[Rfam]
Background: SAM riboswitch aptamer (S box leader): a 108-nucleotide RNA sequence from Jeotgalibacillus campisalis. NCBI's taxonomy places the organism under Bacteria, Bacillota, Bacilli, Caryophanales, Jeotgalibacillus. It scores 89 bits against the family's covariance model. Gene Ontology term of the family: regulation of gene expression. The base pairs follow the family's consensus structure, which is taken from published work. About the family: The SAM riboswitch is found upstream of a number of genes which code for proteins involved in methionine or cysteine biosynthesis in Gram-positive bacteria.

RNA sequence: CUCUUAUCAAGAGAGGCGGAGGGAUUGGCCCUAUGAAGCCCGGCAACCGCUGACGUCAUGUCAGAAAGGUGCUACAUCCAGCAGGAGAAAUCUCCUGAAAGAUAGGAU
Number, nucleotide and partner (000 for none) at each position: 001c000002u107003c106004u105005u104006a103007u102008c101009a000010a000011g000012a000013g041014a000015g040016g039017c038018g000019g000020a000021g031022g030023g029024a000025u081026u080027g079028g078029c023030c022031c021032u000033a000034u000035g000036a000037a000038g017039c016040c015041c013042g073043g072044c071045a070046a000047c069048c068049g000050c064051u063052g062053a000054c000055g000056u000057c000058a000059u000060g000061u000062c052063a051064g050065a000066a000067a000068g048069g047070u045071g044072c043073u042074a000075c000076a000077u100078c028079c027080a026081g025082c097083a096084g095085g094086a093087g092088a000089a000090a000091u000092c087093u086094c085095c084096u083097g082098a000099a000100a077101g008102a007103u006104a005105g004106g003107a002108u000